This 118-nucleotide RNA belongs to the Rfam family "Streptomyces-metK RNA". Rfam classes the family as a small RNA. Rfam's curators put it in the seed alignment.

RNA sequence: GCGAGACGUCUGGUCUUGUGGCCGAGACCGCCCGAUAAACUGUUCCCGGAACGACGCGGGGCGCAGCCCCCUGCCGGUCCACCAACGAUCAGCCAGCAGCCGCUGCAAACCCAGGGAG
Numbered sequence: 001g002c003g004a005g006a007c008g009u010c011u012g013g014u015c016u017u018g019u020g021g022c023c024g025a026g027a028c029c030g031c032c033c034g035a036u037a038a039a040c041u042g043u044u045c046c047c048g049g050a051a052c053g054a055c056g057c058g059g060g061g062c063g064c065a066g067c068c069c070c071c072u073g074c075c076g077g078u079c080c081a082c083c084a085a086c087g088a089u090c091a092g093c094c095a096g097c098a099g100c101c102g103c104u105g106c107a108a109a110c111c112c113a114g115g116g117a118g
Stems, first nucleotide, its partner, number of pairs: 048080003052076002056074001058072004094105004

The family's consensus secondary structure is taken from published work.